RNA sequence: CGUAGCGGUGGCGCACGACGUAAACCGCUUUAAAGACCCGGGGAAAUAACCCAACCCAACCAAACCCGGGCCGCGCUCACUCGGUCGGGUGAAUGAGCCCAACCCGGCUGGCGCAUAUGCCAAUUCAGGGUGCAGGCUCAGCCUCGACAACCCCAGACAUGCGAACGGCCCCCGACGGGACUGGCAUCCCGGCCGAGGGCCUCACCGCUCAGGAAGUGGAGCUUCCCG
Numbered sequence: 001c002g003u004a005g006c007g008g009u010g011g012c013g014c015a016c017g018a019c020g021u022a023a024a025c026c027g028c029u030u031u032a033a034a035g036a037c038c039c040g041g042g043g044a045a046a047u048a049a050c051c052c053a054a055c056c057c058a059a060c061c062a063a064a065c066c067c068g069g070g071c072c073g074c075g076c077u078c079a080c081u082c083g084g085u086c087g088g089g090u091g092a093a094u095g096a097g098c099c100c101a102a103c104c105c106g107g108c109u110g111g112c113g114c115a116u117a118u119g120c121c122a123a124u125u126c127a128g129g130g131u132g133c134a135g136g137c138u139c140a141g142c143c144u145c146g147a148c149a150a151c152c153c154c155a156g157a158c159a160u161g162c163g164a165a166c167g168g169c170c171c172c173c174g175a176c177g178g179g180a181c182u183g184g185c186a187u188c189c190c191g192g193c194c195g196a197g198g199g200c201c202u203c204a205c206c207g208c209u210c211a212g213g214a215a216g217u218g219g220a221g222c223u224u225c226c227c228g
Base pairs, nucleotide, nucleotide: 007209008208009207010206077092078091079090080089081088082087107142108141109140110139111138167201168200169199170198171197173195174194177190178189179188180187212226213225214224215223216222
This 228-nucleotide RNA sequence from Streptomyces sp. ICC1 belongs to the Rfam family "Streptomyces sRNA 4677". Rfam's curators write: Located in the intergenic region between anti-sigma factor SCO4677 gene and a putative regulatory protein gene SCO4676. scr4677 expression requires the SCO4677 activity and scr4677 sRNA itself seem to affect the levels of the SCO4676-associated transcripts. Taxonomically the source falls in Streptomyces (Bacteria, Actinomycetes, Kitasatosporales, Streptomycetaceae). The family has 12 seed sequences and 563 matches in Rfam 15.1.